RNA sequence: CCCAGGGCUGCGCCCUGGGCUAUCGUAUGGUCGGCCCUUCGGGCCU
Numbered sequence: 001c002c003c004a005g006g007g008c009u010g011c012g013c014c015c016u017g018g019g020c021u022a023u024c025g026u027a028u029g030g031u032c033g034g035c036c037c038u039u040c041g042g043g044c045c046u
Base pairs, nucleotide, nucleotide: 001019002018003017004016005015006014007013008012033045034044035043036042037041

Shown here is a 46-nucleotide RNA sequence from a Pirellulaceae bacterium, a member of the family "Acido-Lenti-1 RNA". The match comes from Rfam's covariance-model search (42 bits). The source organism's lineage runs through Bacteria, Planctomycetota, Planctomycetia, Pirellulales and Pirellulaceae. The base pairs follow the family's consensus structure, which is taken from published work.